[Rfam]
RNA: MIR3627 microRNA precursor family
RNA sequence: AGGGAUUUAUGUUCGCAGGAGAGAUGGCACUGUCUGUGGUGCAACUAGCUACCAGCAGAUGGUGUCAUCCCUCCUGUGACCAGAAAACCCU
Numbered sequence: 001a002g003g004g005a006u007u008u009a010u011g012u013u014c015g016c017a018g019g020a021g022a023g024a025u026g027g028c029a030c031u032g033u034c035u036g037u038g039g040u041g042c043a044a045c046u047a048g049c050u051a052c053c054a055g056c057a058g059a060u061g062g063u064g065u066c067a068u069c070c071c072u073c074c075u076g077u078g079a080c081c082a083g084a085a086a087a088c089c090c091u
Base pairs, nucleotide, nucleotide: 002090003089004088006086007085008084010082011081013079014078015077016076017075018074019073020072021071023069024068025067026066027065028064029063031061032060033059034058035057036056037055